Shown here is a 100-nucleotide RNA from Fontibacillus panacisegetis, a member of the family "Purine riboswitch aptamer". Rfam describes the family as follows. Riboswitches are metabolite binding domains within certain messenger RNAs that serve as precision sensors for their corresponding targets. The family's consensus secondary structure is taken from published work. The source organism's lineage runs through Bacteria, Bacillota, Caryophanales, Paenibacillaceae and Fontibacillus. Gene Ontology term of the family: purine nucleobase biosynthetic process.
RNA sequence: GUUCUUAUUACUUUUACAAUUCGUAUAUCCUCAAAAAUAAGGUUUGAGGGUCUCUACAAGGAACCAUAAAUUCCUGGCUACGAAUAGGUGUUUUCGCAUA
Numbered sequence: 001g002u003u004c005u006u007a008u009u010a011c012u013u014u015u016a017c018a019a020u021u022c023g024u025a026u027a028u029c030c031u032c033a034a035a036a037a038u039a040a041g042g043u044u045u046g047a048g049g050g051u052c053u054c055u056a057c058a059a060g061g062a063a064c065c066a067u068a069a070a071u072u073c074c075u076g077g078c079u080a081c082g083a084a085u086a087g088g089u090g091u092u093u094u095c096g097c098a099u100a
Stems, first nucleotide, its partner, number of pairs: 019085007029049007059075005